The record is a 136-nucleotide sequence from Felis catus, which matches "Small nucleolar RNA SNORA43" in Rfam. It is annotated as an H/ACA-box small nucleolar RNA. Gene Ontology terms of the family: RNA processing and nucleolus. Pairs were carried over by alignment from the consensus structure, which was predicted with RNAfold. ACA43 is a member of the H/ACA class of snoRNA that guide the sites of modification of uridines to pseudouridines.

RNA sequence: CAGACGCCGGGCCUCCCGGCACCACAGACACAGCUGCUCUGCUGCACCUGUGACGUUGGGGCAAAGAGGAAGCGGCUAUUUCUACGCUCAGUGCUCAGAACCGUGGGCACUAAGAAUGGUUUGUAGCCGAACAUGC
Numbered sequence: 001c002a003g004a005c006g007c008c009g010g011g012c013c014u015c016c017c018g019g020c021a022c023c024a025c026a027g028a029c030a031c032a033g034c035u036g037c038u039c040u041g042c043u044g045c046a047c048c049u050g051u052g053a054c055g056u057u058g059g060g061g062c063a064a065a066g067a068g069g070a071a072g073c074g075g076c077u078a079u080u081u082c083u084a085c086g087c088u089c090a091g092u093g094c095u096c097a098g099a100a101c102c103g104u105g106g107g108c109a110c111u112a113a114g115a116a117u118g119g120u121u122u123g124u125a126g127c128c129g130a131a132c133a134u135g136c
Stems, first nucleotide, its partner, number of pairs: 005061001007059004024051004074128003082119003087114002092109006